[Rfam]
RNA sequence: GCCAACCCAGUGUUCAGACUACCUGUUCAGGAGGCUCUCAAUGUGUACAGUAGUCUGCACAUUGGUUAGG
Numbered sequence: 001g002c003c004a005a006c007c008c009a010g011u012g013u014u015c016a017g018a019c020u021a022c023c024u025g026u027u028c029a030g031g032a033g034g035c036u037c038u039c040a041a042u043g044u045g046u047a048c049a050g051u052a053g054u055c056u057g058c059a060c061a062u063u064g065g066u067u068a069g070g
Base pairs, nucleotide, nucleotide: 007065008064009063010062011061012060013059015057016056017055018054019053020052021051023050024049025048026047028045029044